The record is an 82-nucleotide RNA from Chionis minor, which matches "tRNA" in Rfam. The base pairs follow the family's consensus structure, which is taken from published work. The literature on the family includes a 1993 paper in Trends Biochem Sci by Hou, "The tertiary structure of tRNA and the development of the genetic code". Rfam classes the family as a transfer RNA.
RNA sequence: GUAGUUGUGGCUGAGUGGUGAAGGUGAUGGACUAGAAAUCCAUUGGGGUUCCCCUGUGCAGGUUUGAAACCUGUCAACUAUG
Numbered sequence: 001g002u003a004g005u006u007g008u009g010g011c012u013g014a015g016u017g018g019u020g021a022a023g024g025u026g027a028u029g030g031a032c033u034a035g036a037a038a039u040c041c042a043u044u045g046g047g048g049u050u051c052c053c054c055u056g057u058g059c060a061g062g063u064u065u066g067a068a069a070c071c072u073g074u075c076a077a078c079u080a081u082g
Base pairs, nucleotide, nucleotide: 001081002080003079004078005077006076007075010025011024012023027043028042029041030040031039058074059073060072061071062070